Description
This 102-nucleotide RNA sequence from Anaerosporomusa subterranea belongs to the Rfam family "SAM riboswitch aptamer (S box leader)". Its family is annotated with regulation of gene expression in the Gene Ontology. The match comes from Rfam's covariance-model search (90 bits). NCBI's taxonomy places the organism under Bacteria, Bacillati, Bacillota, Acetonemataceae, Anaerosporomusa.
[Rfam]
RNA sequence: CUCUUAUCAAGAGAGGUCGAGGGACUGGCCCGAUGACACCCAGCAACCGGCAGCAAUGCAGUGGUGCUAAUUCCAACAGAACGUUGUUCUGGGAGAUGAGAG
Numbered sequence: 001c002u003c004u005u006a007u008c009a010a011g012a013g014a015g016g017u018c019g020a021g022g023g024a025c026u027g028g029c030c031c032g033a034u035g036a037c038a039c040c041c042a043g044c045a046a047c048c049g050g051c052a053g054c055a056a057u058g059c060a061g062u063g064g065u066g067c068u069a070a071u072u073c074c075a076a077c078a079g080a081a082c083g084u085u086g087u088u089c090u091g092g093g094a095g096a097u098g099a100g101a102g
Stems, first nucleotide, its partner, number of pairs: 001102008013041001015040003021031003026075003042068004047064002050059003072094001077091006